[Rfam]
RNA sequence: GCGCGGGUGGCGGAAUUCGGUAGACGCGCUAGAUUCAGGAUCUAGUGGCCGCAAGGCCGUGUGGGUUCAAGUCCCACCCCGCGCA
Numbered sequence: 001g002c003g004c005g006g007g008u009g010g011c012g013g014a015a016u017u018c019g020g021u022a023g024a025c026g027c028g029c030u031a032g033a034u035u036c037a038g039g040a041u042c043u044a045g046u047g048g049c050c051g052c053a054a055g056g057c058c059g060u061g062u063g064g065g066u067u068c069a070a071g072u073c074c075c076a077c078c079c080c081g082c083g084c085a
Stems, first nucleotide, its partner, number of pairs: 001084007010027003029045005061077005